[Rfam]
RNA sequence: GUUGGCUAUGGAGACAUGGUCCCAACAACUAUUGGAGGAAAAAUUGUGGGGUCCCUUUGUGCAAUUGCCGGUGUGCUGACUAUUGCCCUGCCAGUUCCGGUCAUUGUGUCAAAU
Numbered sequence: 001g002u003u004g005g006c007u008a009u010g011g012a013g014a015c016a017u018g019g020u021c022c023c024a025a026c027a028a029c030u031a032u033u034g035g036a037g038g039a040a041a042a043a044u045u046g047u048g049g050g051g052u053c054c055c056u057u058u059g060u061g062c063a064a065u066u067g068c069c070g071g072u073g074u075g076c077u078g079a080c081u082a083u084u085g086c087c088c089u090g091c092c093a094g095u096u097c098c099g100g101u102c103a104u105u106g107u108g109u110c111a112a113a114u
Stems, first nucleotide, its partner, number of pairs: 001114002005110001007108005013102003018097002021094001037077002040074001050062001
RNA: Potassium channel RNA editing signal
Organism: Menidia menidia